[Rfam]
RNA sequence: GAAGUGAGUUGGACGGUCGCUGCUGUGGAGGUCUUUGUGACUAAAGCAGGGGAGGAAAGUCCGGGCUUCAUAGGGCAUGGUGCCAGGUAACGCCUGGGCGGUGAAAGCCGACGGAAAGUGCAACAGAGAGCAGACCGCCUGCUUGCUUAGGCAGGUUGGUAAGGGUGAAAGGGUGCGGUAAGAGCGCACCGCGUGUCUGGCAACAGGUCACGGCAUGGUAAACCCCACCAGAAGCAAGACCAAAUAGGAAUCCUUUGGCGUGGCCCGCGUUGGAUUCGGGUAGGUUGCUUGAGCGUAUUGGUGACGAUACGCCUAGAGGAAUGAUCGUCCUCGACAGAACCCGGCUUAUAGACUCACUUCAAGC
Numbered sequence: 001g002a003a004g005u006g007a008g009u010u011g012g013a014c015g016g017u018c019g020c021u022g023c024u025g026u027g028g029a030g031g032u033c034u035u036u037g038u039g040a041c042u043a044a045a046g047c048a049g050g051g052g053a054g055g056a057a058a059g060u061c062c063g064g065g066c067u068u069c070a071u072a073g074g075g076c077a078u079g080g081u082g083c084c085a086g087g088u089a090a091c092g093c094c095u096g097g098g099c100g101g102u103g104a105a106a107g108c109c110g111a112c113g114g115a116a117a118g119u120g121c122a123a124c125a126g127a128g129a130g131c132a133g134a135c136c137g138c139c140u141g142c143u144u145g146c147u148u149a150g151g152c153a154g155g156u157u158g159g160u161a162a163g164g165g166u167g168a169a170a171g172g173g174u175g176c177g178g179u180a181a182g183a184g185c186g187c188a189c190c191g192c193g194u195g196u197c198u199g200g201c202a203a204c205a206g207g208u209c210a211c212g213g214c215a216u217g218g219u220a221a222a223c224c225c226c227a228c229c230a231g232a233a234g235c236a237a238g239a240c241c242a243a244a245u246a247g248g249a250a251u252c253c254u255u256u257g258g259c260g261u262g263g264c265c266c267g268c269g270u271u272g273g274a275u276u277c278g279g280g281u282a283g284g285u286u287g288c289u290u291g292a293g294c295g296u297a298u299u300g301g302u303g304a305c306g307a308u309a310c311g312c313c314u315a316g317a318g319g320a321a322u323g324a325u326c327g328u329c330c331u332c333g334a335c336a337g338a339a340c341c342c343g344g345c346u347u348a349u350a351g352a353c354u355c356a357c358u359u360c361a362a363g364c
Stems, first nucleotide, its partner, number of pairs: 001360010011349001012329007020052002023049004057347003061344005066234004073266004078230005083097005098112001099110004113225002118223002120219002135164002137160003141156006172190006191214001192212004197206003238286004248277006257271005293312008
Bacterial RNase P class A: a 364-nucleotide sequence from a Moraxellaceae bacterium.
A search with the family's covariance model found it, with a score of 334 bits.
Clan: RNaseP clan.